Description:
Small nucleolar RNA SNORA72: a 129-nucleotide sequence from Pan troglodytes. It is annotated as an H/ACA-box small nucleolar RNA.

[Rfam]
RNA sequence: CUGUGAAUAUUCUCGCUGUUCUGAUUUUGUGAUAAUCACGAUAGGCUAAACAUUCGCAAUAUUAAGACCAUUCGCAAUAUUAAACUAGUUCUUUCCCCAGGUCUGGUUUUAUAAAUGCUGGUGAUAAAC
Numbered sequence: 001c002u003g004u005g006a007a008u009a010u011u012c013u014c015g016c017u018g019u020u021c022u023g024a025u026u027u028u029g030u031g032a033u034a035a036u037c038a039c040g041a042u043a044g045g046c047u048a049a050a051c052a053u054u055c056g057c058a059a060u061a062u063u064a065a066g067a068c069c070a071u072u073c074g075c076a077a078u079a080u081u082a083a084a085c086u087a088g089u090u091c092u093u094u095c096c097c098c099a100g101g102u103c104u105g106g107u108u109u110u111a112u113a114a115a116u117g118c119u120g121g122u123g124a125u126a127a128a129c
Base pairs, nucleotide, nucleotide: 003057004056005055016044017043018042019041020040022038023037024036025035026034067122068121069120070119073117080106081105082104083102085100086099088097
Gene Ontology terms of the family: nucleolus and RNA processing. The family's consensus secondary structure was predicted with PFOLD. Rfam's curators write: U72 is a member of the H/ACA class of snoRNAs. The snoRNA gene is located in intron 4 of the ribosomal L30 protein gene in human, mouse and chicken. A reference for the family is Ganot et al. (1997), "The family of box ACA small nucleolar RNAs is defined by an evolutionarily conserved secondary structure and ubiquitous sequence elements essential for RNA accumulation", Genes Dev. The organism belongs to Pan, within Eukaryota.